[Rfam]
This 86-nucleotide RNA sequence from Ruminococcus sp. YE71 belongs to the Rfam family "Fluoride riboswitch aptamer (crcB RNA motif)".
RNA sequence: UCUCAUAUCGGGAAUGAUGUUCUCCCGCAUACGGCUCCGAGCGAGCCUGUGAAACCGCUUUCAAAGCUGAUGACUUCUGCGUUCCU
Numbered sequence: 001u002c003u004c005a006u007a008u009c010g011g012g013a014a015u016g017a018u019g020u021u022c023u024c025c026c027g028c029a030u031a032c033g034g035c036u037c038c039g040a041g042c043g044a045g046c047c048u049g050u051g052a053a054a055c056c057g058c059u060u061u062c063a064a065a066g067c068u069g070a071u072g073a074c075u076u077c078u079g080c081g082u083u084c085c086u
Stems, first nucleotide, its partner, number of pairs: 010026004016077002019074003057067003

The base pairs follow the family's consensus structure, which is taken from published work. Taxonomically the source falls in Ruminococcus (Bacteria, Bacillota, Eubacteriales, Oscillospiraceae).